RNA sequence: GGAGCAGCUUCUGGAGAGAUCGCUAAUUCAGCGACGCCGAAGGGUUCACAAUCUCAGGCAAAAGGACAGAAGGGUAACG
Numbered sequence: 001g002g003a004g005c006a007g008c009u010u011c012u013g014g015a016g017a018g019a020u021c022g023c024u025a026a027u028u029c030a031g032c033g034a035c036g037c038c039g040a041a042g043g044g045u046u047c048a049c050a051a052u053c054u055c056a057g058g059c060a061a062a063a064g065g066a067c068a069g070a071a072g073g074g075u076a077a078c079g
Base pairs, nucleotide, nucleotide: 008072009071010070011069012068013067020034021033022032023031036059037058038057039055040054043053044052045051

The record is a 79-nucleotide RNA from Caldibacillus thermoamylovorans, which matches "Glycine riboswitch aptamer" in Rfam. The organism belongs to Caldibacillus, within Bacteria. The match comes from Rfam's covariance-model search (53 bits). The pairing is the family consensus, mapped onto this sequence. Rfam links the family to the GO term glycine biosynthetic process.